[Rfam]
Overview:
The record is an 84-nucleotide sequence from Muraenolepis orangiensis, which matches "Small nucleolar RNA SNORD11B" in Rfam. A reference for the family is Yang et al. (2006), "snoSeeker: an advanced computational package for screening of guide and orphan snoRNA genes in the human genome", Nucleic Acids Res. The organism belongs to Muraenolepis, within Eukaryota.
RNA sequence: UGGCCGUGGUGAUGAGGACUUCUAAGAAAUGUUACCUGAAACAAACGAUGUGGGUACUAAGUCACUAUCUCUUCUGAGCGGCUU
Numbered sequence: 001u002g003g004c005c006g007u008g009g010u011g012a013u014g015a016g017g018a019c020u021u022c023u024a025a026g027a028a029a030u031g032u033u034a035c036c037u038g039a040a041a042c043a044a045a046c047g048a049u050g051u052g053g054g055u056a057c058u059a060a061g062u063c064a065c066u067a068u069c070u071c072u073u074c075u076g077a078g079c080g081g082c083u084u
Base pairs, nucleotide, nucleotide: 002083003082004081005080006079007078